About this RNA:
This 473-nucleotide part of an RNA from Heterodermia speciosa belongs to the Rfam family "Eukaryotic large subunit ribosomal RNA". Rfam links the family to the GO terms ribosome and structural constituent of ribosome. The match comes from Rfam's covariance-model search (288 bits). The source organism's lineage runs through Eukaryota, Ascomycota, Pezizomycotina, Lecanoromycetidae and Heterodermia.
RNA sequence: UGUGUAAAUAAUAAAUUAUGUUUAAAUAAAAUGAAAUCAAAAAAAAUUUUAAUGAAAAUUCGCAACGAUUUUAACGUACAAAUCGAUUGUCAAAUUUAAAUAUAAAAAUAAAUUUUUUGUUAUACAAAUAAAUCAAUAACAUUUGUUAAAACGUUUUUUCAAACGAAAAAUUAAUCGAAUUAUUUCUUUUUUAUUAUUUAAAUAAUUAAUUGAAAACGUAAUUGCGUUUCGACAAUGUUCGUUUUUUCAAUUUUUCGAAACAACAAUGUUACGUACAUGAAUUUAUUUUUUCGAAUUAAAAAAAUGAUAUACAAUCGUUGUCGUUUGUAACAAUAAUUGUUUAUAAAUCAAAUAACAUUAAUUAAAACGUUUUUCGAUUUAAAAAUAAUCGAAUUAUGUUUGUAAUCAAAUUUGUUUCAAAAUAAUUUGUACGUUUUUUUUAAAAUAUCAAUGAAUAACGUUAAUAAUUGAUU
Number, nucleotide and partner (000 for none) at each position: 001u471002g000003u000004g468005u000006a000007a000008a461009u458010a000011a456012u455013a000014a000015a000016u105017u104018a103019u102020g101021u100022u099023u098024a097025a096026a095027u093028a000029a000030a060031a059032u058033g000034a000035a000036a053037u052038c000039a050040a049041a048042a047043a000044a000045a000046a000047u042048u041049u040050u039051a000052a037053u036054g000055a000056a000057a000058a032059u031060u030061c000062g000063c000064a000065a090066c089067g088068a087069u000070u086071u085072u000073a000074a083075c000076g000077u000078a000079c000080a000081a000082a000083u074084c000085g071086a070087u068088u067089g066090u065091c000092a000093a027094a000095u026096u025097u024098a023099a022100a021101u020102a019103u018104a017105a016106a000107a000108a448109u447110a446111a000112a000113u000114u000115u000116u000117u000118u000119g000120u000121u000122a000123u000124a000125c000126a000127a000128a000129u000130a000131a000132a000133u000134c000135a000136a000137u000138a000139a000140c000141a000142u000143u000144u000145g000146u000147u000148a000149a000150a000151a000152c000153g000154u000155u000156u000157u000158u000159u000160c000161a000162a000163a000164c000165g000166a000167a000168a000169a000170a000171u000172u000173a000174a000175u000176c000177g000178a000179a000180u000181u000182a000183u000184u000185u000186c000187u000188u000189u000190u000191u000192u000193a000194u000195u000196a000197u000198u000199u000200a000201a000202a000203u000204a000205a000206u000207u000208a000209a000210u000211u000212g000213a000214a000215a000216a000217c000218g000219u000220a000221a000222u000223u000224g000225c000226g000227u000228u000229u000230c000231g000232a000233c000234a000235a000236u000237g000238u000239u000240c000241g000242u000243u000244u000245u000246u000247u000248c000249a000250a000251u000252u000253u000254u000255u000256c000257g000258a000259a000260a000261c000262a000263a000264c000265a000266a000267u000268g000269u000270u000271a000272c000273g000274u000275a000276c000277a000278u000279g000280a000281a000282u000283u000284u000285a000286u000287u000288u000289u000290u000291u000292c000293g000294a000295a000296u000297u000298a000299a000300a000301a000302a000303a000304a000305u000306g000307a000308u000309a000310u000311a000312c000313a000314a000315u000316c000317g000318u000319u000320g000321u000322c000323g000324u000325u000326u000327g000328u000329a000330a000331c000332a000333a000334u000335a000336a000337u000338u000339g000340u000341u000342u000343a000344u000345a000346a000347a000348u000349c000350a000351a000352a000353u000354a000355a000356c000357a000358u000359u000360a000361a000362u000363u000364a000365a000366a000367a000368c000369g000370u000371u000372u000373u000374u000375c000376g000377a000378u000379u000380u000381a000382a000383a000384a000385a000386u000387a000388a000389u000390c000391g000392a000393a000394u000395u000396a000397u000398g000399u000400u000401u000402g000403u000404a000405a000406u000407c000408a000409a000410a000411u000412u000413u000414g000415u000416u000417u000418c000419a000420a000421a000422a000423u000424a000425a000426u000427u000428u000429g000430u000431a000432c000433g000434u000435u000436u000437u000438u000439u000440u000441u000442a000443a000444a000445a000446u110447a109448u108449c000450a000451a000452u000453g000454a000455a012456u011457a000458a009459c000460g000461u008462u000463a000464a000465u000466a000467a000468u004469u000470g000471a001472u000473u000